Shown here is a 104-nucleotide sequence, a member of the family "RT-5 RNA".
RNA sequence: UUGCGCCUGCGGCGGACCCGGCACGAGCCAAGCACGGCUUCGCAGGCAGCCGGUUCGUGUACGGUCUGGUACUUCCCGGAAUUUUCCGGGCUUUAACGCCUUCU
Numbered sequence: 001u002u003g004c005g006c007c008u009g010c011g012g013c014g015g016a017c018c019c020g021g022c023a024c025g026a027g028c029c030a031a032g033c034a035c036g037g038c039u040u041c042g043c044a045g046g047c048a049g050c051c052g053g054u055u056c057g058u059g060u061a062c063g064g065u066c067u068g069g070u071a072c073u074u075c076c077c078g079g080a081a082u083u084u085u086c087c088g089g090g091c092u093u094u095a096a097c098g099c100c101u102u103c104u
Base pairs, nucleotide, nucleotide: 005047006046007045008044009043010042011041013068014067015066017064018063021060022059023058024057025056026055027054028053036051037050038049039048075090076089077088078087079086080085

Rfam's curators put it in the seed alignment.